[Rfam]
RNA sequence: UGCGAGAGUGAUGAGUUGCACAAUUGGUGGAGCUGAGUGUUGGUGACACAAGUGCCACUCAGAACCUCCCUGGUGACAAAGCCAAGUGCACAGGGGCCAUCUGACUCGCU
Number, nucleotide and partner (000 for none) at each position: 001u000002g000003c000004g109005a000006g107007a106008g105009u000010g000011a000012u000013g000014a000015g000016u000017u000018g000019c000020a000021c000022a000023a000024u062025u061026g060027g058028u057029g056030g055031a000032g053033c052034u051035g000036a000037g049038u048039g047040u046041u045042g000043g000044u000045g041046a040047c039048a038049c037050a000051a034052g033053u032054g000055c030056c029057a028058c027059u000060c026061a025062g024063a000064a000065c000066c000067u000068c000069c000070c000071u000072g000073g000074u000075g000076a000077c000078a000079a000080a000081g000082c000083c000084a000085a000086g000087u000088g000089c000090a000091c000092a000093g000094g000095g000096g000097c000098c000099a000100u000101c000102u000103g000104a000105c008106u007107c006108g000109c004110u000
The record is a 110-nucleotide RNA sequence from Podarcis lilfordi, which matches "Small nucleolar RNA SNORD67" in Rfam.
snoRNA HBII-166 belongs to the C/D family of snoRNAs.
The source organism's lineage runs through Eukaryota, Teleostomi, Squamata, Lacertinae and Podarcis.
It is annotated as a C/D-box small nucleolar RNA.
The base pairs follow the family's consensus structure.